Shown here is a 93-nucleotide RNA sequence from Chrysochloris asiatica, a member of the family "Small nucleolar RNA SNORD116". On this family, see Cavaille et al., Proc Natl Acad Sci U S A 2000: "Identification of brain-specific and imprinted small nucleolar RNA genes exhibiting an unusual genomic organization". The family has 48 seed sequences and 3,260 matches in Rfam 15.1. Its family is annotated with RNA processing and nucleolus in the Gene Ontology. Rfam classes the family as a C/D-box small nucleolar RNA. The organism belongs to Chrysochloris, within Eukaryota.
[Rfam]
RNA sequence: GGAUCACUGAUAAUGUCUACAUAAACAUUUCUUGGAAAAGCUGAACAAAAUUAGUGAAAAGUCACCACCGUGUAACUCAUUGAACUGAGGUCC
Number, nucleotide and partner (000 for none) at each position: 001g093002g092003a091004u090005c089006a000007c000008u000009g000010a000011u000012a000013a000014u000015g000016u000017c000018u000019a000020c000021a000022u000023a000024a000025a000026c056027a055028u054029u053030u000031c000032u048033u047034g046035g000036a000037a000038a000039a000040g000041c000042u000043g000044a000045a000046c034047a033048a032049a000050a000051u000052u000053a029054g028055u027056g026057a000058a000059a000060a000061g000062u000063c000064a000065c000066c000067a000068c000069c000070g000071u000072g000073u000074a000075a000076c000077u000078c000079a000080u000081u000082g000083a000084a000085c000086u000087g000088a000089g005090g004091u003092c002093c001